[Rfam]
Nucleotides: 302
Stems, first nucleotide, its partner, number of pairs: 005033007013024001037076002040073002044067002047064002050058001086256003090252001095246001100241002103237002106234003110120003122142005128137003143162002146159004163192002170186005196230002200228008209219003258288004263283001265278002
Number, partner (000 for none) and nucleotide at each position: 001000a002000a003000g004000u005033g006032u007031u008030g009029u010028c011027a012000g013024g014000u015000u016000a017000c018000c019000g020000g021000c022000u023000g024013c025000u026000a027011u028010g029009g030008u031007a032006a033005c034000u035000c036000u037076g038075u039000a040073g041072g042000c043000a044067u045066u046000a047064g048063u049000u050058c051000g052000a053000a054000a055000c056000g057000a058050g059000c060000a061000c062000a063048g064047u065000g066045a067044a068000c069000a070000a071000a072041c073040c074000g075038a076037u077000u078000a079000u080000g081000a082000a083000a084000g085000c086256c087255c088254u089000a090252g091000c092000c093000c094000a095246a096000g097000u098000g099000a100241u101240u102000a103237g104236c105000c106234u107233a108232g109000u110120c111119g112118u113000g114000a115000u116000u117000a118112g119111c120110g121000u122142g123141g124140u125139g126138g127000u128137g129136a130135u131000u132000a133000u134000u135130a136129u137128c138126c139125c140124a141123c142122c143162g144161u145000g146159c147158g148157g149156g150000g151000c152000u153000g154000c155000a156149c157148u158147u159146g160000g161144a162143c163192g164191a165000a166000g167000a168000a169000a170186g171185g172184c173183u174182u175000a176000g177000a178000a179000a180000a181000c182174a183173a184172g185171c186170c187000g188000g189000a190000a191164u192163c193000g194000c195000a196230a197229g198000a199000u200228a201227a202226c203225c204224c205223c206222c207221g208000c209219a210218c211217c212000c213000a214000a215000a216000a217211g218210g219209u220000c221207c222206g223205g224204g225203g226202g227201u228200u229197u230196u231000u232108u233107u234106a235000u236104g237103c238000c239000a240101a241100g242000a243000a244000a245000a246095u247000g248000u249000g250000a251000a252090c253000a254088a255087g256086g257000a258288g259287c260286a261285g262000a263283g264000a265278a266277u267000g268000a269000c270000c271000a272000a273000c274000a275000g276000a277266a278265u279000a280000a281000a282000a283263u284000c285261c286260u287259g288258c289000g290000c291000u292000u293000c294000c295000c296000g297000c298000a299000a300000c301000a302000a
Shown here is a 302-nucleotide RNA sequence from Serratia fonticola, a member of the family "Soft rot Enterobacteriaceae Rev 39 5'UTR". Rfam's curators write: From bacteria cultured under starvation conditions. The source organism's lineage runs through Bacteria, Pseudomonadota, Enterobacterales, Yersiniaceae and Serratia. It scores 176 bits against the family's covariance model. Pairs were carried over by alignment from the consensus structure, which was predicted with RNAfold. A reference for the family is Kwenda et al. (2016), "Discovery and profiling of small RNAs responsive to stress conditions in the plant pathogen Pectobacterium atrosepticum", BMC Genomics.